[Rfam]
RNA sequence: AGUAUCUGAUGACGAAACCUCGACCACUCUUAGGACACCUUUGGACACAUUGUUAGCACUGUGAGUGAGAAGUACAUUCUUUUCAGAUGAUAUU
Numbered sequence: 001a002g003u004a005u006c007u008g009a010u011g012a013c014g015a016a017a018c019c020u021c022g023a024c025c026a027c028u029c030u031u032a033g034g035a036c037a038c039c040u041u042u043g044g045a046c047a048c049a050u051u052g053u054u055a056g057c058a059c060u061g062u063g064a065g066u067g068a069g070a071a072g073u074a075c076a077u078u079c080u081u082u083u084c085a086g087a088u089g090a091u092a093u094u
Stems, first nucleotide, its partner, number of pairs: 001094006044048001